[Rfam]
RNA: SAM riboswitch aptamer (S box leader)
Organism: Nocardia terpenica
RNA sequence: CACCCAUCCAGAGCGGUUGAGAGACCUGGCUCCCCGAGACCGCAGCAACCCCCGGCCACCGGAGCGGGUGCUACCGCCAGGACCGAUGGAGG
Numbered sequence: 001c002a003c004c005c006a007u008c009c010a011g012a013g014c015g016g017u018u019g020a021g022a023g024a025c026c027u028g029g030c031u032c033c034c035c036g037a038g039a040c041c042g043c044a045g046c047a048a049c050c051c052c053c054g055g056c057c058a059c060c061g062g063a064g065c066g067g068g069u070g071c072u073a074c075c076g077c078c079a080g081g082a083c084c085g086a087u088g089g090a091g092g
Base pairs, nucleotide, nucleotide: 001092004089005088006087007086008085013043014042015041016040017039021032022031023030026080027079028078029077044072045071046070047069049068050067051064053062076084